[Rfam]
RNA sequence: CCGUCCACCGACCGGAACGGAUCCGCGCCCGGACCGGCCGGCCGGUUACCCUGACCAGGUGCGCCCGCCGCGGGGCAGGGCCCCGGAAGGGCGCAUAGCCGACAGCCGUCGCAUCUCCGGGAGCCUCCCCAUG
Numbered sequence: 001c002c003g004u005c006c007a008c009c010g011a012c013c014g015g016a017a018c019g020g021a022u023c024c025g026c027g028c029c030c031g032g033a034c035c036g037g038c039c040g041g042c043c044g045g046u047u048a049c050c051c052u053g054a055c056c057a058g059g060u061g062c063g064c065c066c067g068c069c070g071c072g073g074g075g076c077a078g079g080g081c082c083c084c085g086g087a088a089g090g091g092c093g094c095a096u097a098g099c100c101g102a103c104a105g106c107c108g109u110c111g112c113a114u115c116u117c118c119g120g121g122a123g124c125c126u127c128c129c130c131a132u133g
Base pairs, nucleotide, nucleotide: 060095061094062093063092065090066089098112099111101110102109103108
Rfam assigns this 133-nucleotide sequence from Streptomyces hainanensis to the family "Streptomyces-metH RNA".
It scores 70 bits against the family's covariance model.